RNA sequence: GACGACGAUGAUGAGUCUUCAGACCUGUAAUGAUUAUUGCGGAUAUGAUCGCAUUAUCAAAGAACAUCUAAGGGACUGAGUUGCA
Numbered sequence: 001g002a003c004g005a006c007g008a009u010g011a012u013g014a015g016u017c018u019u020c021a022g023a024c025c026u027g028u029a030a031u032g033a034u035u036a037u038u039g040c041g042g043a044u045a046u047g048a049u050c051g052c053a054u055u056a057u058c059a060a061a062g063a064a065c066a067u068c069u070a071a072g073g074g075a076c077u078g079a080g081u082u083g084c085a
Base pairs, nucleotide, nucleotide: 003083004082005081006080

A member of the RNA family "Small nucleolar RNA SNORD25" from Zingiber officinale, 85 nucleotides long. Gene Ontology terms of the family: RNA processing and nucleolus. The family's consensus secondary structure was predicted with PFOLD. It scores 88 bits against the family's covariance model. The literature on the family includes a 2001 paper in Nucleic Acids Res by Qu et al., "Identification of 10 novel snoRNA gene clusters from Arabidopsis thaliana". The family's RNA type in Rfam is C/D-box small nucleolar RNA.